Shown here is an 82-nucleotide RNA from Pleuronectes platessa, a member of the family "Small nucleolar RNA SNORD53/SNORD92". Its family is annotated with nucleolus and RNA processing in the Gene Ontology. The base pairs follow the family's consensus structure. Lineage of the source: Eukaryota > Gnathostomata > Neopterygii > Clupeocephala > Pleuronectes. The literature on the family includes a 1996 paper in Cell by Kiss-Laszlo et al., "Site-specific ribose methylation of preribosomal RNA: a novel function for small nucleolar RNAs". By type it is a C/D-box small nucleolar RNA.
RNA sequence: GCGGAGUGAUGAUACUGAGAAAGGUUUCGCUAAAUGAGCUGAUAUCAUGUGAUGUCACAUUUUCUCUUGGCUGUCUGACCGC
Numbered sequence: 001g002c003g004g005a006g007u008g009a010u011g012a013u014a015c016u017g018a019g020a021a022a023g024g025u026u027u028c029g030c031u032a033a034a035u036g037a038g039c040u041g042a043u044a045u046c047a048u049g050u051g052a053u054g055u056c057a058c059a060u061u062u063u064c065u066c067u068u069g070g071c072u073g074u075c076u077g078a079c080c081g082c
Stems, first nucleotide, its partner, number of pairs: 001082004